[Rfam]
RNA: MIR1120/MIR1122 microRNA precursor family
RNA sequence: UUACUCCCUCUAUCCCAUAAUAUAAGAACGUUUCUUCAACUAUGUUAGCUUAAAAAACGUUCUUAUAUUCUGGGACGGAGGUAGUAU
Numbered sequence: 001u002u003a004c005u006c007c008c009u010c011u012a013u014c015c016c017a018u019a020a021u022a023u024a025a026g027a028a029c030g031u032u033u034c035u036u037c038a039a040c041u042a043u044g045u046u047a048g049c050u051u052a053a054a055a056a057a058c059g060u061u062c063u064u065a066u067a068u069u070c071u072g073g074g075a076c077g078g079a080g081g082u083a084g085u086a087u
Stems, first nucleotide, its partner, number of pairs: 003085003007081005013075005019069015035053002038050001040048002